RNA sequence: UUCUUUUAGGUCUGUAGUUGCGGACAUGCAGCGCUUUCGAGUGCAGCAUUCCAAGUCCAUGGCAGAUGCGGUCGAAAGGAUCCACGUAAGUUCAGUGAUCGCUCGCGUGUUAUUCCUGCUAGCCUUGCGCUUUUGCAGGUUUGGCGAAGAGCUCAUCAUUGAAUGAGCACGGCGCAUUCUAGGUGUAAGUCGUACCGUCGGUGAAGCGGCAUAGGGCUGCUCUGGCGAGCGGAUGGCGUCGCUGCAAUACUCGUGCGCGCACGGUCUACAGCGGCUAAGUCCCCGUAUGCAGGUGUGGGGUCGAAAACUAGGUCAGCUAAAAGAA
Numbered sequence: 001u002u003c004u005u006u007u008a009g010g011u012c013u014g015u016a017g018u019u020g021c022g023g024a025c026a027u028g029c030a031g032c033g034c035u036u037u038c039g040a041g042u043g044c045a046g047c048a049u050u051c052c053a054a055g056u057c058c059a060u061g062g063c064a065g066a067u068g069c070g071g072u073c074g075a076a077a078g079g080a081u082c083c084a085c086g087u088a089a090g091u092u093c094a095g096u097g098a099u100c101g102c103u104c105g106c107g108u109g110u111u112a113u114u115c116c117u118g119c120u121a122g123c124c125u126u127g128c129g130c131u132u133u134u135g136c137a138g139g140u141u142u143g144g145c146g147a148a149g150a151g152c153u154c155a156u157c158a159u160u161g162a163a164u165g166a167g168c169a170c171g172g173c174g175c176a177u178u179c180u181a182g183g184u185g186u187a188a189g190u191c192g193u194a195c196c197g198u199c200g201g202u203g204a205a206g207c208g209g210c211a212u213a214g215g216g217c218u219g220c221u222c223u224g225g226c227g228a229g230c231g232g233a234u235g236g237c238g239u240c241g242c243u244g245c246a247a248u249a250c251u252c253g254u255g256c257g258c259g260c261a262c263g264g265u266c267u268a269c270a271g272c273g274g275c276u277a278a279g280u281c282c283c284c285g286u287a288u289g290c291a292g293g294u295g296u297g298g299g300g301u302c303g304a305a306a307a308c309u310a311g312g313u314c315a316g317c318u319a320a321a322a323g324a325a
Base pairs, nucleotide, nucleotide: 001325002324003323004322005321006320007319008318009317012316013315014314015310016309017308018307019306059296060295061294062072065178066177067176068175069174070173081172082171089164091162092161094159170303191289192288193287194286195285196227197226198225199224200223231282232281233280236275237274

Overview:
raiA RNA: a 325-nucleotide sequence. It is annotated as a riboswitch.